The record is a 116-nucleotide RNA sequence from Dethiosulfatibacter aminovorans, which matches "Molybdenum/Tungsten riboswitch aptamer (Moco RNA motif)" in Rfam. The match comes from Rfam's covariance-model search (64 bits).
RNA sequence: UCAUAUGCUCAUUACCGAGUCUCAUGGACCUACGGGCUGCCAUGGACAUGAGACCGAAGGGUAUGUUUGGAAACAAUCAUGCCUCCCGUUUGGAAAGGUAAAGGAGAAUGAAGUGG
Numbered sequence: 001u002c003a004u005a006u007g008c009u010c011a012u013u014a015c016c017g018a019g020u021c022u023c024a025u026g027g028a029c030c031u032a033c034g035g036g037c038u039g040c041c042a043u044g045g046a047c048a049u050g051a052g053a054c055c056g057a058a059g060g061g062u063a064u065g066u067u068u069g070g071a072a073a074c075a076a077u078c079a080u081g082c083c084u085c086c087c088g089u090u091u092g093g094a095a096a097g098g099u100a101a102a103g104g105a106g107a108a109u110g111a112a113g114u115g116g
Base pairs, nucleotide, nucleotide: 006107012101013100014099015098016097019054020053021052022051023050024049025048026047029045030044034041035040059084060083061082062081063080064079065078067076068075069074085093086092